Shown here is a 264-nucleotide RNA sequence from Fregata magnificens, a member of the family "7SK RNA".
[Rfam]
RNA sequence: GGAUGUGAGGGCGAUCUGGCUGCGACAUCUGUCACCCCAUUGAUCGCCAGGGUUGAUUCGGCUGAUCUGGCUGGCUAGGCGGGUGUCCCCUUCCUCCCUCACCGCUCCAUGUGCGUCCCUCCCGAAGCUGCGCGCUCGGUCGAAGAGGACGACCUUCCCCGAUAGAGGCGUACCGUUCAUCGGUCAAGGGUAUACGGUUUGUUUAUGCUUUCAACUUUCCUUGUGCAGAGACUUCAAUGGGCAUCUAGUUAGAUAUGACUAUUU
Numbered sequence: 001g002g003a004u005g006u007g008a009g010g011g012c013g014a015u016c017u018g019g020c021u022g023c024g025a026c027a028u029c030u031g032u033c034a035c036c037c038c039a040u041u042g043a044u045c046g047c048c049a050g051g052g053u054u055g056a057u058u059c060g061g062c063u064g065a066u067c068u069g070g071c072u073g074g075c076u077a078g079g080c081g082g083g084u085g086u087c088c089c090c091u092u093c094c095u096c097c098c099u100c101a102c103c104g105c106u107c108c109a110u111g112u113g114c115g116u117c118c119c120u121c122c123c124g125a126a127g128c129u130g131c132g133c134g135c136u137c138g139g140u141c142g143a144a145g146a147g148g149a150c151g152a153c154c155u156u157c158c159c160c161g162a163u164a165g166a167g168g169c170g171u172a173c174c175g176u177u178c179a180u181c182g183g184u185c186a187a188g189g190g191u192a193u194a195c196g197g198u199u200u201g202u203u204u205a206u207g208c209u210u211u212c213a214a215c216u217u218u219c220c221u222u223g224u225g226c227a228g229a230g231a232c233u234u235c236a237a238u239g240g241g242c243a244u245c246u247a248g249u250u251a252g253a254u255a256u257g258a259c260u261a262u263u264u
Stems, first nucleotide, its partner, number of pairs: 001108003005102007013093002018090002024087010035074002037070003042067004046062003117170001118168004122139004127135002140162003147158003236264001238261003242257001243254004
Dot-bracket structure: (((.(((((((.((...((....((((((((((.(((((..(((((((...........))).)))))))..))...)))))))))).)).))..)))))))...)))........(((((((((.((.....))))))(((....(((......))).)))..)))).).................................................................(.(((.(((((....))))..).)))..)
Rfam classes the family as a non-coding RNA gene. The family has 45 seed sequences and 49,373 matches in Rfam 15.1. On this family, see Blencowe, Curr Biol 2002: "Transcription: surprising role for an elusive small nuclear RNA". The base pairs follow the family's consensus structure, which is taken from published work.